[Rfam]
RNA sequence: CCCUCGGGACGGCCCGGCGGGUGACACCAAUCAGGGGACGACCCC
Number, nucleotide and partner (000 for none) at each position: 001c020002c019003c000004u017005c016006g015007g014008g013009a000010c000011g000012g000013c008014c007015c006016g005017g004018c000019g002020g001021g000022u000023g000024a000025c000026a000027c000028c000029a000030a000031u000032c000033a000034g045035g044036g043037g042038a000039c000040g000041a000042c037043c036044c035045c034